[Rfam]
RNA: Guanidine-II riboswitch aptamer (mini-ykkC)
RNA sequence: GCCAUGGGACGACUCAUGGCGUUGCGAGUUCCCGCGGGACGACCCGC
Dot-bracket structure: ((((((((....)))))))).............(((((....)))))